[Rfam]
Glycine riboswitch aptamer: a 104-nucleotide RNA sequence from Leptolinea tardivitalis. Its family is annotated with glycine biosynthetic process in the Gene Ontology. NCBI's taxonomy places the organism under Bacteria, Bacillati, Anaerolineales, Anaerolineaceae, Leptolinea. A search with the family's covariance model found it, with a score of 56 bits. The family has 44 seed sequences and 9,425 matches in Rfam 15.1. Rfam's curators write: This family represents the bacterial glycine riboswitch.

RNA sequence: GGAUGCAACGGGGAAGAGACUGUUUGAAAACGGCACCGAAGGGGCAAACAAACGCUUCAGAAACGUUUGCGAAUCUCUCAGGUAAAAAGGACCCUGCUGCGAUC
Numbered sequence: 001g002g003a004u005g006c007a008a009c010g011g012g013g014a015a016g017a018g019a020c021u022g023u024u025u026g027a028a029a030a031c032g033g034c035a036c037c038g039a040a041g042g043g044g045c046a047a048a049c050a051a052a053c054g055c056u057u058c059a060g061a062a063a064c065g066u067u068u069g070c071g072a073a074u075c076u077c078u079c080a081g082g083u084a085a086a087a088a089g090g091a092c093c094c095u096g097c098u099g100c101g102a103u104c
Stems, first nucleotide, its partner, number of pairs: 006099002009096005020033004035083003038079002042077003049069006